[Rfam]
RNA sequence: AAGGAUCCAACAGGGGCAACAUGAGAACACAUAUGCCACAAAAUUGCUGUUGUCAAGAUAAAAUCCUUGAUUUGUGUUCAAUGUGUUCUCAGGUCGCCCCUGCAGGAUCUCU
Numbered sequence: 001a002a003g004g005a006u007c008c009a010a011c012a013g014g015g016g017c018a019a020c021a022u023g024a025g026a027a028c029a030c031a032u033a034u035g036c037c038a039c040a041a042a043a044u045u046g047c048u049g050u051u052g053u054c055a056a057g058a059u060a061a062a063a064u065c066c067u068u069g070a071u072u073u074g075u076g077u078u079c080a081a082u083g084u085g086u087u088c089u090c091a092g093g094u095c096g097c098c099c100c101u102g103c104a105g106g107a108u109c110u111c112u
Base pairs, nucleotide, nucleotide: 007106008105011102012101013100014099016097017096019094023090024089025088026087027086028085029084030083031082032081
The record is a 112-nucleotide RNA sequence from Coffea canephora, which matches "MIR398 microRNA precursor family" in Rfam.
The family's consensus secondary structure was predicted with WAR.
A search with the family's covariance model found it, with a score of 66 bits.
Lineage of the source: Eukaryota > Tracheophyta > Gunneridae > asterids > Coffea.